[Rfam]
Nucleotides: 376
Stems, first nucleotide, its partner, number of pairs: 006024006025374004033354004039334002044068006053061002075330004080111002085106003089102001091100003115132005135326011146312002151305004159292004165285003172278004176197006198253001202248004209241002219235004224231001257270005340349002356368004
Number, partner (000 for none) and nucleotide at each position: 001000g002000a003000a004000a005000a006024u007023u008022g009021g010020g011019g012000u013000g014000a015000g016000a017000a018000u019011c020010c021009c022008c023007a024006a025374c026373c027372c028371c029000g030000a031000a032000a033354c034353c035352c036351u037000a038000a039334g040333g041000g042000u043000u044068c045067c046066u047065c048064c049063g050000g051000a052000a053061g054060g055000c056000u057000c058000g059000u060054c061053c062000g063049c064048g065047g066046a067045g068044g069000g070000u071000c072000a073000g074000u075330c076329a077328g078327g079000u080111c081110c082000u083000a084000a085106g086105g087104c088000g089102a090000g091100g092099c093098u094000g095000a096000a097000g098093a099092g100091c101000g102089u103000a104087g105086u106085c107000g108000a109000u110081g111080g112000a113000u114000a115132a116131c117130g118129g119128g120000u121000u122000a123000a124000c125000a126000u127000u128119c129118c130117c131116g132115u133000a134000c135326c136325g137324u138323u139322a140321a141320a142319g143318g144317u145316u146312g147311g148000u149000g150000a151305a152304g153303g154302g155000g156000g157000a158000c159292g160291g161290a162289g163000a164000a165285g166284g167283u168000c169000u170000a171000g172278a173277c174276u175275a176197g177196c178195c179194g180193g181192g182000u183000a184000a185000u186000g187000g188000u189000u190000g191000u192181c193180c194179c195178g196177g197176u198253g199000c200000a201000a202248g203247c204246g205245u206000u207000c208000g209241a210240g211000g212000u213000g214000a215000u216000g217000a218000a219235g220234u221233c222232u223000g224231g225000a226000g227000a228000a229000a230000a231224c232222a233221g234220a235219c236000a237000g238000a239000g240210c241209u242000a243000a244000g245205g246204c247203g248202c249000g250000a251000g252000u253198c254000c255000g256000a257270c258269a259268a260267g261266c262000u263000a264000a265000g266261g267260c268259u269258u270257g271000g272000a273000a274000g275175u276174a277173g278172u279000a280000c281000g282000g283167a284166u285165c286000c287000a288000a289162c290161u291160u292159c293000c294000c295000a296000g297000a298000a299000a300000a301000g302154c303153c304152c305151u306000a307000a308000c309000c310000a311147c312146c313000a314000u315000a316145a317144a318143c319142c320141u321140u322139u323138a324137a325136u326135g327078c328077c329076u330075g331000u332000a333040c334039c335000c336000g337000a338000a339000a340349c341348c342000g343000a344000c345000a346000c347000a348341g349340g350000u351036a352035g353034g354033g355000u356368g357367g358366u359365a360000g361000a362000g363000a364000a365359u366358a367357c368356c369000g370000a371028g372027g373026g374025g375000c376000g
A member of the RNA family "Bacterial large subunit ribosomal RNA" from Lusitaniella coriacea, 376 nucleotides of a longer RNA. The base pairs follow the family's consensus structure, which is taken from published work.